[Rfam]
RNA: c-di-GMP-I riboswitch aptamer
RNA sequence: UAUAAAUUUUAGCAAAACAGUCGAAAGAUUGUGACGCAAAGCUAUAGGGCCUGUAAUAUGGUAGCCAGUUGCAAAU
Numbered sequence: 001u002a003u004a005a006a007u008u009u010u011a012g013c014a015a016a017a018c019a020g021u022c023g024a025a026a027g028a029u030u031g032u033g034a035c036g037c038a039a040a041g042c043u044a045u046a047g048g049g050c051c052u053g054u055a056a057u058a059u060g061g062u063a064g065c066c067a068g069u070u071g072c073a074a075a076u
Stems, first nucleotide, its partner, number of pairs: 012037002017032006040070004047066002049062003